[Rfam]
RNA sequence: AGGAUGUUAGUUUAAUGGAAAACCCUGGUAUUAUAGCUACUAAAAUAUAAGUUCGAGUCUUAUACAUCUUG
Numbered sequence: 001a002g003g004a005u006g007u008u009a010g011u012u013u014a015a016u017g018g019a020a021a022a023c024c025c026u027g028g029u030a031u032u033a034u035a036g037c038u039a040c041u042a043a044a045a046u047a048u049a050a051g052u053u054c055g056a057g058u059c060u061u062a063u064a065c066a067u068c069u070u071g
Stems, first nucleotide, its partner, number of pairs: 001070007010024001012022002026042005047063005
This 71-nucleotide sequence from Eutypa lata belongs to the Rfam family "tRNA". A search with the family's covariance model found it, with a score of 46 bits. The family's consensus secondary structure is taken from published work.